[Rfam]
This 120-nucleotide RNA sequence from Sus scrofa belongs to the Rfam family "Small nucleolar RNA SNORA40".
RNA sequence: AGCACUUGUGUUUUUGUUUCAUUUGUGGACAAAGACUUAGAUACAGGUGCAAAAAUAAAUCCUCUUUUGCAACCCAGAACACAUUGUUCAGUAGGAGUUUUGAUACAGAUAAGGAACAUG
Numbered sequence: 001a002g003c004a005c006u007u008g009u010g011u012u013u014u015u016g017u018u019u020c021a022u023u024u025g026u027g028g029a030c031a032a033a034g035a036c037u038u039a040g041a042u043a044c045a046g047g048u049g050c051a052a053a054a055a056u057a058a059a060u061c062c063u064c065u066u067u068u069g070c071a072a073c074c075c076a077g078a079a080c081a082c083a084u085u086g087u088u089c090a091g092u093a094g095g096a097g098u099u100u101u102g103a104u105a106c107a108g109a110u111a112a113g114g115a116a117c118a119u120g
Base pairs, nucleotide, nucleotide: 002050003049004048005047006046007045008044009043010036011035012034013033014032015031016030017029022027060116062114063113068111069110075102076101077100078099079098080097082095084093
Its family is annotated with RNA processing and nucleolus in the Gene Ontology.
The family's RNA type in Rfam is H/ACA-box small nucleolar RNA.